[Rfam]
RNA sequence: UUGACCUUUUUUAUUUUAAAUCACUCACAGAGGGUGGGUAGGAGGAGGAGUGAAAGAGAAGGUCAA
Numbered sequence: 001u002u003g004a005c006c007u008u009u010u011u012u013a014u015u016u017u018a019a020a021u022c023a024c025u026c027a028c029a030g031a032g033g034g035u036g037g038g039u040a041g042g043a044g045g046a047g048g049a050g051u052g053a054a055a056g057a058g059a060a061g062g063u064c065a066a
Base pairs, nucleotide, nucleotide: 001066002065003064004063005062006061007060008059009058010057011056012055021053022052023051024050025049026048
Dot-bracket structure: ((((((((((((........((((((.....................)))))).))))))))))))
A member of the RNA family "XIST 3' intron conserved motif" from Erinaceus europaeus, 66 nucleotides long. The source organism's lineage runs through Eukaryota, Chordata, Mammalia, Erinaceinae and Erinaceus. Rfam classes the family as a long non-coding RNA. On this family, see Parker et al., Genome Res 2011: "New families of human regulatory RNA structures identified by comparative analysis of vertebrate genomes".